[Rfam]
RNA sequence: AUCCAUUCCGAGGGGCGUCCGGCUGCAAUGCCGGGCUGAGAUGGCGCUACGCCGAUCCCUUAGAACCUGAUCCGGGUCAUGCCGGCGAAGGGACGGGAGCUUGCGGCCGC
Numbered sequence: 001a002u003c004c005a006u007u008c009c010g011a012g013g014g015g016c017g018u019c020c021g022g023c024u025g026c027a028a029u030g031c032c033g034g035g036c037u038g039a040g041a042u043g044g045c046g047c048u049a050c051g052c053c054g055a056u057c058c059c060u061u062a063g064a065a066c067c068u069g070a071u072c073c074g075g076g077u078c079a080u081g082c083c084g085g086c087g088a089a090g091g092g093a094c095g096g097g098a099g100c101u102u103g104c105g106g107c108c109g110c
Base pairs, nucleotide, nucleotide: 006098007097008096009095010094011060012059013058014057016054017036018035019034020033021032022031023030043053044052045051046050066091067090068089072085073084074083075082
RNA: TPP riboswitch aptamer (THI element)